[Rfam]
RNA sequence: UUAAUAAACUCUGUGCAUGUUCGUAUAAUUUCGGGAAUAGGGCCCGUAAGUUUCUACCGAGCUACCGUAAAUGGCUUGACUAUGAACAAGGAAUGAAUGACG
Numbered sequence: 001u002u003a004a005u006a007a008a009c010u011c012u013g014u015g016c017a018u019g020u021u022c023g024u025a026u027a028a029u030u031u032c033g034g035g036a037a038u039a040g041g042g043c044c045c046g047u048a049a050g051u052u053u054c055u056a057c058c059g060a061g062c063u064a065c066c067g068u069a070a071a072u073g074g075c076u077u078g079a080c081u082a083u084g085a086a087c088a089a090g091g092a093a094u095g096a097a098u099g100a101c102g
Base pairs, nucleotide, nucleotide: 018088019087020086021085022084023083024082025081029049030048032046033045034044035043058078059077060076061075062074063073064072
This 102-nucleotide RNA sequence from Evansella caseinilytica belongs to the Rfam family "Purine riboswitch aptamer". The base pairs follow the family's consensus structure, which is taken from published work. The match comes from Rfam's covariance-model search (84 bits). On this family, see Reining et al., Nature 2013: "Three-state mechanism couples ligand and temperature sensing in riboswitches". About the family: Riboswitches are metabolite binding domains within certain messenger RNAs that serve as precision sensors for their corresponding targets.